[Rfam]
RNA sequence: AAUCGACUAGGCGAUUUAAAACAGGUGUUAAGCCUAGUGCGGUAAGAGGUAUCCCCUCUUACGUCACG
Numbered sequence: 001a002a003u004c005g006a007c008u009a010g011g012c013g014a015u016u017u018a019a020a021a022c023a024g025g026u027g028u029u030a031a032g033c034c035u036a037g038u039g040c041g042g043u044a045a046g047a048g049g050u051a052u053c054c055c056c057u058c059u060u061a062c063g064u065c066a067c068g
Stems, first nucleotide, its partner, number of pairs: 001016004006038006025067003032040001042062008

This 68-nucleotide RNA sequence from [Clostridium] innocuum belongs to the Rfam family "Pistol ribozyme". A search with the family's covariance model found it, with a score of 62 bits. Its family is annotated with catalytic activity in the Gene Ontology.